[Rfam]
RNA sequence: CCAGUGCAUGAAUUUCAUGCACCGGGCCUCUAGUAAUUAUUAUAAUAUUACUAGAGGCCCGGUGCAUGAAAUUCAUGCAUGGGG
Numbered sequence: 001c002c003a004g005u006g007c008a009u010g011a012a013u014u015u016c017a018u019g020c021a022c023c024g025g026g027c028c029u030c031u032a033g034u035a036a037u038u039a040u041u042a043u044a045a046u047a048u049u050a051c052u053a054g055a056g057g058c059c060c061g062g063u064g065c066a067u068g069a070a071a072u073u074c075a076u077g078c079a080u081g082g083g084g
Stems, first nucleotide, its partner, number of pairs: 001082002005079008014070003018066019
The family of this 84-nucleotide sequence from Cnephaeus nilssonii is "mir-9243 microRNA precursor family". The base pairs follow the family's consensus structure, which was predicted with RNAalifold. The source organism's lineage runs through Eukaryota, Chordata, Gnathostomata, Chiroptera and Cnephaeus.